[Rfam]
RNA sequence: CGCGUGGUGUCUGGCGGAAGAGGGCCGGAUAGCGACGCGGCCUUAACAGAGGU
Numbered sequence: 001c002g003c004g005u006g007g008u009g010u011c012u013g014g015c016g017g018a019a020g021a022g023g024g025c026c027g028g029a030u031a032g033c034g035a036c037g038c039g040g041c042c043u044u045a046a047c048a049g050a051g052g053u
Base pairs, nucleotide, nucleotide: 001039002038003037004036005035007033008032011028012027013026014025015024
L31-Gammaproteobacteria ribosomal protein leader: a 53-nucleotide sequence from Edwardsiella hoshinae. The base pairs follow the family's consensus structure, which is taken from published work. The organism belongs to Edwardsiella hoshinae, within Bacteria. Rfam's curators put it in the seed alignment. The family's RNA type in Rfam is cis-regulatory leader. On this family, see Eckert and Weinberg, BMC Microbiol 2020: "Discovery of 20 novel ribosomal leader candidates in bacteria and archaea".